[Rfam]
RNA: Glycine riboswitch aptamer
RNA sequence: CGGAAGUGUUCCGGAGAGUUUCGGGUAAAACCGGAGUGCCGGAGGGGUUACCGGAACCCCCCGGGCGAAUUAAUGGGCCACCAUGG
Numbered sequence: 001c002g003g004a005a006g007u008g009u010u011c012c013g014g015a016g017a018g019u020u021u022c023g024g025g026u027a028a029a030a031c032c033g034g035a036g037u038g039c040c041g042g043a044g045g046g047g048u049u050a051c052c053g054g055a056a057c058c059c060c061c062c063g064g065g066c067g068a069a070u071u072a073a074u075g076g077g078c079c080a081c082c083a084u085g086g
Stems, first nucleotide, its partner, number of pairs: 006081003010077004020036003038066003041062002045060003